[Rfam]
Shown here is a 243-nucleotide RNA from Carex littledalei, a member of the family "RNase MRP". Rfam classes the family as a ribozyme. Gene Ontology terms of the family: rRNA processing, ribonuclease MRP activity and ribonuclease MRP complex. From the family's description: RNase MRP is an enzymatically active ribonucleoprotein with two distinct roles in eukaryotes. In mitochondria it plays a direct role in the initiation of mitochondrial DNA replication. In the nucleus it is involved in precursor rRNA processing, where it cleaves the internal transcribed spacer 1 between 18S and 5.8S rRNAs. Despite distinct functions, RNase MRP has been shown to be evolutionarily related to RNase P. Like eukaryotic RNase P, RNase MRP is not catalytically active without associated protein subunits. A search with the family's covariance model found it, with a score of 56 bits. The literature on the family includes a 1993 paper in FASEB J by Schmitt et al., "Secondary structure of RNase MRP RNA as predicted by phylogenetic comparison". Pairs were carried over by alignment from the consensus structure, which is taken from published work. The organism belongs to Carex subgen. Euthyceras, within Eukaryota.
RNA sequence: AGAACACAGAAAGUGGUGAAUGGGCCUAUGGGCUCUAGAAAGUCCCCGGGCUUUUUAAUCGCAGAGAUGCGGCCGCGGAAACACGGGUAUCCCUUGGCAACCUGACCUGCCUACUUUGGUGGGGGGCAAAGACUGUUGUGGAGCCCAAGGGCCAGUUGUCAGGGAUCAAUAACCGUUACACAGUUAUUCACUGGGCCCUUAUAUCAUGGGCUAUAACGGAACGGGGCUUACUCUUCUUUUUUU
Numbered sequence: 001a002g003a004a005c006a007c008a009g010a011a012a013g014u015g016g017u018g019a020a021u022g023g024g025c026c027u028a029u030g031g032g033c034u035c036u037a038g039a040a041a042g043u044c045c046c047c048g049g050g051c052u053u054u055u056u057a058a059u060c061g062c063a064g065a066g067a068u069g070c071g072g073c074c075g076c077g078g079a080a081a082c083a084c085g086g087g088u089a090u091c092c093c094u095u096g097g098c099a100a101c102c103u104g105a106c107c108u109g110c111c112u113a114c115u116u117u118g119g120u121g122g123g124g125g126g127c128a129a130a131g132a133c134u135g136u137u138g139u140g141g142a143g144c145c146c147a148a149g150g151g152c153c154a155g156u157u158g159u160c161a162g163g164g165a166u167c168a169a170u171a172a173c174c175g176u177u178a179c180a181c182a183g184u185u186a187u188u189c190a191c192u193g194g195g196c197c198c199u200u201a202u203a204u205c206a207u208g209g210g211c212u213a214u215a216a217c218g219g220a221a222c223g224g225g226g227c228u229u230a231c232u233c234u235u236c237u238u239u240u241u242u243u
Stems, first nucleotide, its partner, number of pairs: 002243003006239001008237004014193006022035005040229003044226004060071004072088001073086003077082001090164003096160006114150003124146004195211004